Record summary:
A member of the RNA family "tRNA" from Nocardioides terrae, 74 nucleotides long. Taxonomically the source falls in Nocardioides (Bacteria, Bacillati, Actinomycetes, Nocardioidaceae). A search with the family's covariance model found it, with a score of 62 bits.
[Rfam]
RNA sequence: GCCCCCGUAUCCCAAUCGGCAGAGGAAUCCGCCUUAAAAGCGGAAGAGUCUGGGUUCGAGUCCCAGCGGGGGCA
Dot-bracket structure: (((((((..(((...........))).(((((.......))))).....(((((.......)))))))))))).
Numbered sequence: 001g002c003c004c005c006c007g008u009a010u011c012c013c014a015a016u017c018g019g020c021a022g023a024g025g026a027a028u029c030c031g032c033c034u035u036a037a038a039a040g041c042g043g044a045a046g047a048g049u050c051u052g053g054g055u056u057c058g059a060g061u062c063c064c065a066g067c068g069g070g071g072g073c074a
Stems, first nucleotide, its partner, number of pairs: 001073007010026003028044005050066005
Description: Rfam links the family to the GO term triplet codon-amino acid adaptor activity. The family's RNA type in Rfam is transfer RNA.